[Rfam]
Background:
The record is a 142-nucleotide RNA sequence from Dioscorea zingiberensis, which matches "small nucleolar RNA snoR135" in Rfam.
RNA sequence: UCUGCAGGAUAGUGUGUAUUGGUGUUAUGCUUGUAUGCAUAUCUUGCCAAAAGAGUUUCCUGCUAAAUUUAUUUGAGGAUGAUGGGCAGUUGGAUUCUCCUAAUCAGAAUUGGGCUUCUCAACAAUCAUCGUCCUCAUAUUU
Numbered sequence: 001u002c003u004g005c006a007g008g009a010u011a012g013u014g015u016g017u018a019u020u021g022g023u024g025u026u027a028u029g030c031u032u033g034u035a036u037g038c039a040u041a042u043c044u045u046g047c048c049a050a051a052a053g054a055g056u057u058u059c060c061u062g063c064u065a066a067a068u069u070u071a072u073u074u075g076a077g078g079a080u081g082a083u084g085g086g087c088a089g090u091u092g093g094a095u096u097c098u099c100c101u102a103a104u105c106a107g108a109a110u111u112g113g114g115c116u117u118c119u120c121a122a123c124a125a126u127c128a129u130c131g132u133c134c135u136c137a138u139a140u141u142u
Stems, first nucleotide, its partner, number of pairs: 004063005009057001014040006075136011089123004
Annotation:
The source organism's lineage runs through Eukaryota, Magnoliopsida, Mesangiospermae, Dioscoreaceae and Dioscorea. By type it is an H/ACA-box small nucleolar RNA. The family's consensus secondary structure was predicted with RNAalifold.